[Rfam]
RNA sequence: CCGCGGCCCCGGGCCCCUCUGGCGAGAGAUGCCGGAUCUCUCGCGAUGUCGGAGCCGCCGU
Numbered sequence: 001c002c003g004c005g006g007c008c009c010c011g012g013g014c015c016c017c018u019c020u021g022g023c024g025a026g027a028g029a030u031g032c033c034g035g036a037u038c039u040c041u042c043g044c045g046a047u048g049u050c051g052g053a054g055c056c057g058c059c060g061u
Base pairs, nucleotide, nucleotide: 006055007054009052010051011050012049022044023043024042025041026040027039028038029037
RNA: terC RNA
Organism: Tistlia consotensis